[Rfam]
RNA: mir-11 microRNA precursor family
Organism: Plutella xylostella
RNA sequence: UUUUGUGGCUAGACCUCACACUGUGACCUGUGUUAAGUUCCACAUCACAGUCAGAGUUCUAGCUACACGC
Numbered sequence: 001u002u003u004u005g006u007g008g009c010u011a012g013a014c015c016u017c018a019c020a021c022u023g024u025g026a027c028c029u030g031u032g033u034u035a036a037g038u039u040c041c042a043c044a045u046c047a048c049a050g051u052c053a054g055a056g057u058u059c060u061a062g063c064u065a066c067a068c069g070c
Base pairs, nucleotide, nucleotide: 004067005066006065009062010061011060012059013058015056016055017054021050022049023048024047025046026045030043031042032041